[Rfam]
The record is an 80-nucleotide sequence, which matches "chrB-a RNA" in Rfam. By type it is a cis-regulatory element. The sequence is in the family's curated seed alignment.
RNA sequence: GCCAUGGGGAAAGCGAUCUCCCCACCAGGCGACAUGCCGAAGAAUCGCGUCCCGCUCUCUGCGAAGAGGACGCCCGCAUG
Dot-bracket structure: ....((((((........))))))......................((((((...............)))))).......